A member of the RNA family "c-di-AMP riboswitch aptamer (ydaO/yuaA leader)" from Sinomonas atrocyanea, 167 nucleotides long. It scores 61 bits against the family's covariance model. NCBI's taxonomy places the organism under Bacteria, Actinomycetes, Micrococcales, Micrococcaceae, Sinomonas.

Nucleotides: 167
Stems, first nucleotide, its partner, number of pairs: 004038003039148006049081002082133003090110001092108004113127004
Number, partner (000 for none) and nucleotide at each position: 001000c002000a003000c004038u005037u006036c007000c008000c009000g010000g011000a012000g013000c014000c015000g016000u017000u018000c019000g020000c021000a022000c023000a024000u025000u026000c027000c028000g029000u030000c031000u032000g033000g034000c035000a036006g037005a038004g039148g040147c041146g042145g043144g044143g045000g046000a047000a048000c049081c050080a051000c052000u053000u054000u055000c056000g057000g058000c059000c060000u061000u062000c063000u064000g065000u066000u067000g068000u069000c070000u071000g072000g073000g074000a075000g076000g077000c078000c079000u080050u081049g082133g083132g084131g085000u086000u087000a088000a089000g090110c091000a092108g093107c094106c095105u096000g097000g098000c099000u100000c101000c102000g103000c104000c105095a106094g107093g108092c109000g110090g111000c112000c113127g114126g115125a116124u117000a118000c119000u120000u121000u122000c123000c124116a125115u126114c127113c128000g129000a130000a131084c132083c133082c134000g135000a136000c137000a138000g139000c140000u141000c142000a143044c144043c145042u146041c147040g148039u149000a150000g151000g152000c153000a154000u155000u156000g157000g158000g159000a160000g161000a162000g163000g164000c165000u166000a167000c